The family of this 112-nucleotide RNA from Streptomyces coryli is "TPP riboswitch aptamer (THI element)". From the family's description: Vitamin B(1) in its active form thiamin pyrophosphate (TPP) is an essential coenzyme that is synthesised by coupling of pyrimidine and thiazole moieties in bacteria. The source organism's lineage runs through Bacteria, Bacillati, Actinomycetota, Kitasatosporales and Streptomyces.
RNA sequence: GAGCGCCAUCGCGGGAGCCCGGACGUACCGGGCUGAGAGGGGGGCUGUCGGCCCCCGACCGUACGAACCUGAUCCGGGUCAUGCCGGCGAAGGGAGGGGCUGGAAGCCCGUG
Numbered sequence: 001g002a003g004c005g006c007c008a009u010c011g012c013g014g015g016a017g018c019c020c021g022g023a024c025g026u027a028c029c030g031g032g033c034u035g036a037g038a039g040g041g042g043g044g045c046u047g048u049c050g051g052c053c054c055c056c057g058a059c060c061g062u063a064c065g066a067a068c069c070u071g072a073u074c075c076g077g078g079u080c081a082u083g084c085c086g087g088c089g090a091a092g093g094g095a096g097g098g099g100c101u102g103g104a105a106g107c108c109c110g111u112g
Base pairs, nucleotide, nucleotide: 007099009097010096011062012061013060014059017033018032019031020030021029040056041055042054043053044052045051046050068093069092070091074087075086076085077084
The family has 115 seed sequences and 16,130 matches in Rfam 15.1.